[Rfam]
RNA sequence: ACCGUCCGCGUGGGAGAGACCGGACCGCGCCCCCCGAUGGGAGGCCGGCCCCGGCGCCGAAGGAGCAACCGCCCCCGGAAACUCUCAGGCAAAAGGACCGCGCGGCACGC
Numbered sequence: 001a002c003c004g005u006c007c008g009c010g011u012g013g014g015a016g017a018g019a020c021c022g023g024a025c026c027g028c029g030c031c032c033c034c035c036g037a038u039g040g041g042a043g044g045c046c047g048g049c050c051c052c053g054g055c056g057c058c059g060a061a062g063g064a065g066c067a068a069c070c071g072c073c074c075c076c077g078g079a080a081a082c083u084c085u086c087a088g089g090c091a092a093a094a095g096g097a098c099c100g101c102g103c104g105g106c107a108c109g110c
Base pairs, nucleotide, nucleotide: 006105007104008103009102010101011100012099013098020054021053022052023051056090057089058088059086060085063084064083065082069077